[Rfam]
RNA sequence: GGAGUUGGCCAGGCAAUCGCUGUUGUCGUCAGGACAGCAGAGGAAAGUCCGGGCUCCAUAGGGCAAGACGCCAGGUAACGCCUGGACGGCGCGAGUCGAUGGAAAGUGCCACAGAAAAUAUACCGCCGAUGGCCGCAAGGCACAGGUAAGGGUGAAAUGGUGCGGUAAGAGCGCACCGCGCACGUGGUAACACGUCGUGGCAGGGUAAACCCCGUCUGGAGCAAGGCCAAAUAGGGAUGCUUUCAUGUGGCCCGCAUGGCAUCCGGGUAGGCUGCUUGAGGUGUGUGGUGACACACAUCCCAGAGGAAUGAUUGCCCCCGACAGAACCCGGCUUAUCGGCCAACUCCCUUU
Numbered sequence: 001g002g003a004g005u006u007g008g009c010c011a012g013g014c015a016a017u018c019g020c021u022g023u024u025g026u027c028g029u030c031a032g033g034a035c036a037g038c039a040g041a042g043g044a045a046a047g048u049c050c051g052g053g054c055u056c057c058a059u060a061g062g063g064c065a066a067g068a069c070g071c072c073a074g075g076u077a078a079c080g081c082c083u084g085g086a087c088g089g090c091g092c093g094a095g096u097c098g099a100u101g102g103a104a105a106g107u108g109c110c111a112c113a114g115a116a117a118a119u120a121u122a123c124c125g126c127c128g129a130u131g132g133c134c135g136c137a138a139g140g141c142a143c144a145g146g147u148a149a150g151g152g153u154g155a156a157a158u159g160g161u162g163c164g165g166u167a168a169g170a171g172c173g174c175a176c177c178g179c180g181c182a183c184g185u186g187g188u189a190a191c192a193c194g195u196c197g198u199g200g201c202a203g204g205g206u207a208a209a210c211c212c213c214g215u216c217u218g219g220a221g222c223a224a225g226g227c228c229a230a231a232u233a234g235g236g237a238u239g240c241u242u243u244c245a246u247g248u249g250g251c252c253c254g255c256a257u258g259g260c261a262u263c264c265g266g267g268u269a270g271g272c273u274g275c276u277u278g279a280g281g282u283g284u285g286u287g288g289u290g291a292c293a294c295a296c297a298u299c300c301c302a303g304a305g306g307a308a309u310g311a312u313u314g315c316c317c318c319c320g321a322c323a324g325a326a327c328c329c330g331g332c333u334u335a336u337c338g339g340c341c342a343a344c345u346c347c348c349u350u351u
Base pairs, nucleotide, nucleotide: 001347002346003345004344005343006342007341008340009339010338011336012316013315014314015313016312017311018310020040021039022038023037024036025035026034027033045334046333047332049331050330051329052328053327054221055220056219057218061253062252063251064250066217067216068215069214070213071085072084073083074082075081086100087098088097089096090095101212102211106210107209108206109205110204123151124150125147126146127145130142131141133139159177160176161175162174163173164172178201179199180198181197182195183194184193185192186191225273226272227271228270235264236263237262238261239260240259244258245257246256247255248254280299281298282297283296284295285294286293287292
Shown here is a 351-nucleotide sequence from Ectothiorhodosinus mongolicus, a member of the family "Bacterial RNase P class A". By type it is a ribozyme. Rfam links the family to the GO terms tRNA processing, ribonuclease P activity and dimeric ribonuclease P complex. It scores 346 bits against the family's covariance model.